This 126-nucleotide RNA sequence from Hymenochirus boettgeri belongs to the Rfam family "U4atac minor spliceosomal RNA". The family's consensus secondary structure is taken from published work.
RNA sequence: ACCAUCCUUGUCUUGGGGUGAGCGGCUGUUCAAUGAACGUGUAGUGAGAACAGCACUGCUGACACCAUGAACAACACUUGAGCACCACUAGUGCACUAGCAUUAGCCCGGUGCAAUUUUUGGAAAC
Numbered sequence: 001a002c003c004a005u006c007c008u009u010g011u012c013u014u015g016g017g018g019u020g021a022g023c024g025g026c027u028g029u030u031c032a033a034u035g036a037a038c039g040u041g042u043a044g045u046g047a048g049a050a051c052a053g054c055a056c057u058g059c060u061g062a063c064a065c066c067a068u069g070a071a072c073a074a075c076a077c078u079u080g081a082g083c084a085c086c087a088c089u090a091g092u093g094c095a096c097u098a099g100c101a102u103u104a105g106c107c108c109g110g111u112g113c114a115a116u117u118u119u120u121g122g123a124a125a126c
Stems, first nucleotide, its partner, number of pairs: 006018004020059001022057001025054007037045002082113005089104006
From the family's description: U4atac is an essential component of the minor U12-type spliceosome complex which is required for removal of the rarer class of eukaryotic introns (AT-AC, U12-type).